RNA sequence: UUGAGCCAUGAGCUGGAGUGAGCGGGUCAGUUGAUGACCCAGGAAAGUCCCCGGGCCCUACUCCGCAGAAAUGCGGUCCUGGAAUCGGGAACGCUCGGUGCAACGAAUCUUCCUGCCUUGUGCAGAUGGCCGAGACAAGUGUGGAGCCUACAGAUUCGUUGCCCGGGUAACUUGGCCGACUGCUACAGUUAUUCACUCAGGUCCACAACACUGUGGGCCAACAGAACGGGGCUUACAUCUCAUGGCGUC
Number, nucleotide and partner (000 for none) at each position: 001u000002u000003g248004a000005g246006c245007c244008a243009u242010g241011a240012g000013c000014u000015g000016g198017a197018g196019u195020g194021a193022g000023c000024g040025g039026g038027u037028c036029a035030g000031u000032u000033g000034a000035u029036g028037a027038c026039c025040c024041a000042g000043g000044a000045a234046a233047g232048u000049c231050c230051c229052c228053g000054g000055g000056c000057c000058c000059u000060a000061c000062u000063c000064c075065g074066c073067a072068g000069a000070a000071a000072u067073g066074c065075g064076g000077u090078c089079c088080u087081g086082g000083a000084a000085u000086c081087g080088g079089g078090a077091a000092c000093g000094c167095u166096c000097g000098g000099u000100g000101c161102a160103a159104c158105g157106a156107a000108u000109c000110u000111u000112c000113c000114u000115g155116c000117c153118u152119u000120g000121u000122g000123c000124a000125g000126a000127u000128g148129g147130c146131c000132g000133a000134g000135a000136c000137a142138a000139g000140u000141g000142u137143g000144g000145a000146g130147c129148c128149u000150a000151c000152a118153g117154a000155u115156u106157c105158g104159u103160u102161g101162c000163c000164c000165g000166g095167g094168u000169a000170a000171c000172u000173u000174g000175g000176c000177c000178g000179a000180c000181u000182g000183c000184u000185a000186c000187a000188g000189u000190u000191a000192u000193u021194c020195a019196c018197u017198c016199a000200g000201g218202u217203c216204c215205a214206c213207a000208a000209c000210a000211c000212u000213g206214u205215g204216g203217g202218c201219c000220a000221a000222c000223a000224g000225a000226a000227c000228g052229g051230g050231g049232c047233u046234u045235a000236c000237a000238u000239c000240u011241c010242a009243u008244g007245g006246c005247g000248u003249c000
Rfam assigns this 249-nucleotide sequence from Populus tomentosa to the family "RNase MRP". It is annotated as a ribozyme. From the family's description: RNase MRP is an enzymatically active ribonucleoprotein with two distinct roles in eukaryotes. In mitochondria it plays a direct role in the initiation of mitochondrial DNA replication. In the nucleus it is involved in precursor rRNA processing, where it cleaves the internal transcribed spacer 1 between 18S and 5.8S rRNAs. Despite distinct functions, RNase MRP has been shown to be evolutionarily related to RNase P. Like eukaryotic RNase P, RNase MRP is not catalytically active without associated protein subunits.